[Rfam]
RNA sequence: UUGUCAGUGAUGGCAAGGAUGGAGGAAGUGGUGUAGUGAUUCUUUUGAGCGUACGAACAGAAACUUGAUAUAAGGCUAAAUGGUGGAUGAGAUUGCAUCACAAAUCGAAGUCCAAAAGGUAAACGUAAAACCAAGACAGUAAAUCAAGACGUUGUAAAAGAAAGAGGAUUAGU
Numbered sequence: 001u002u003g004u005c006a007g008u009g010a011u012g013g014c015a016a017g018g019a020u021g022g023a024g025g026a027a028g029u030g031g032u033g034u035a036g037u038g039a040u041u042c043u044u045u046u047g048a049g050c051g052u053a054c055g056a057a058c059a060g061a062a063a064c065u066u067g068a069u070a071u072a073a074g075g076c077u078a079a080a081u082g083g084u085g086g087a088u089g090a091g092a093u094u095g096c097a098u099c100a101c102a103a104a105u106c107g108a109a110g111u112c113c114a115a116a117a118g119g120u121a122a123a124c125g126u127a128a129a130a131c132c133a134a135g136a137c138a139g140u141a142a143a144u145c146a147a148g149a150c151g152u153u154g155u156a157a158a159a160g161a162a163a164g165a166g167g168a169u170u171a172g173u
Base pairs, nucleotide, nucleotide: 001016002015003014004013005012006011028173029172031170037165042160043159044158045157047155048153049152050151051150052149064148065147066146067145068144069143075140076139077138081133082132083131084130085113086112087111088110091106092105093104094103

Group II catalytic intron D1-D4-3: a 173-nucleotide RNA.
The pairing is the family consensus, mapped onto this sequence.